[Rfam]
Nucleotides: 130
Base pairs, nucleotide, nucleotide: 007058008057009056010055011054012053015048016047020045021044022042023039024038025037026036027035028034060101061100062099063098064097065096105125107128111123112122113121
Number, partner (000 for none) and nucleotide at each position: 001000g002000c003000c004000a005000a006000a007058g008057c009056u010055g011054u012053c013000u014000a015048g016047g017000g018000u019000u020045c021044c022042g023039u024038u025037g026036a027035c028034g029000c030000g031000a032000c033000g034028c035027g036026u037025c038024a039023a040000g041000c042022c043000u044021g045020g046000u047016c048015c049000g050000a051000g052000a053012g054011a055010c056009g057008g058007c059000g060101u061100a062099u063098g064097g065096g066000a067000a068000g069000c070000g071000a072000g073000c074000a075000g076000g077000c078000g079000a080000g081000u082000c083000g084000u085000c086000g087000c088000g089000c090000u091000c092000g093000a094000a095000g096065c097064c098063c099062a100061u101060a102000u103000g104000a105125c106000a107128c108000g109000g110000a111123a112122g113121g114000a115000u116000a117000a118000a119000a120000g121113c122112c123111u124000g125105g126000g127000a128107g129000a130000u
Description: Rfam assigns this 130-nucleotide sequence from Paenibacillus methanolicus to the family "Guanidine-I riboswitch aptamer". Taxonomically the source falls in Paenibacillus (Bacteria, Bacillati, Bacilli, Caryophanales). It scores 84 bits against the family's covariance model. The pairing is the family consensus, mapped onto this sequence. Rfam links the family to the GO term regulation of gene expression.